[Rfam]
Shown here is a 100-nucleotide RNA sequence from Megalops atlanticus, a member of the family "mir-214 microRNA precursor family".
RNA sequence: CCAAGGGAGUUGUCGUGUGUCUGCCUGUCUACACUUGCUGUGCAGAACUUCCUGCACCUGUACAGCAGGCACAGACAGGCAGACAGACGGCAGCCCGCCA
Numbered sequence: 001c002c003a004a005g006g007g008a009g010u011u012g013u014c015g016u017g018u019g020u021c022u023g024c025c026u027g028u029c030u031a032c033a034c035u036u037g038c039u040g041u042g043c044a045g046a047a048c049u050u051c052c053u054g055c056a057c058c059u060g061u062a063c064a065g066c067a068g069g070c071a072c073a074g075a076c077a078g079g080c081a082g083a084c085a086g087a088c089g090g091c092a093g094c095c096c097g098c099c100a
Base pairs, nucleotide, nucleotide: 018085019084022081023080024079025078026077027076028075029074030073034069036067037066038065039064040063041062043060044059045058
The family has 39 seed sequences and 1,411 matches in Rfam 15.1. A reference for the family is Shao et al. (2008), "Identification of novel chicken microRNAs and analysis of their genomic organization", Gene. Its family is annotated with RISC complex and miRNA-mediated post-transcriptional gene silencing in the Gene Ontology.